[Rfam]
RNA sequence: UUCUUAUCAAGAUAGGUGGAGGGACUGGCCCAUUGAAACCUGGCAACAGACCUUUAGGUACUGUGCUAAUUCCUGUGGGUGUAUUUUAUCUCAAAAGAUAAGAA
Numbered sequence: 001u002u003c004u005u006a007u008c009a010a011g012a013u014a015g016g017u018g019g020a021g022g023g024a025c026u027g028g029c030c031c032a033u034u035g036a037a038a039c040c041u042g043g044c045a046a047c048a049g050a051c052c053u054u055u056a057g058g059u060a061c062u063g064u065g066c067u068a069a070u071u072c073c074u075g076u077g078g079g080u081g082u083a084u085u086u087u088a089u090c091u092c093a094a095a096a097g098a099u100a101a102g103a104a
Stems, first nucleotide, its partner, number of pairs: 001104008015040003021031003025075001027073002042067004047063002050059003071096001076093004

Annotation
Rfam assigns this 104-nucleotide sequence from Virgibacillus necropolis to the family "SAM riboswitch aptamer (S box leader)". Rfam describes the family as follows. The SAM riboswitch is found upstream of a number of genes which code for proteins involved in methionine or cysteine biosynthesis in Gram-positive bacteria. Pairs were carried over by alignment from the consensus structure, which is taken from published work.